[Rfam]
RNA: c-di-GMP-I riboswitch aptamer
Organism: Fontibacillus panacisegetis
RNA sequence: AAUACAUUCCGGCAAAGCUAUUGAAAAAUAGUGACGCAAAGCUAUAGGGACUACUUCCGUAGAGGAAAUGUCAGCCAGUUGCACAU
Numbered sequence: 001a002a003u004a005c006a007u008u009c010c011g012g013c014a015a016a017g018c019u020a021u022u023g024a025a026a027a028a029u030a031g032u033g034a035c036g037c038a039a040a041g042c043u044a045u046a047g048g049g050a051c052u053a054c055u056u057c058c059g060u061a062g063a064g065g066a067a068a069u070g071u072c073a074g075c076c077a078g079u080u081g082c083a084c085a086u
Stems, first nucleotide, its partner, number of pairs: 012037002017032006040080004047076002049072003056066003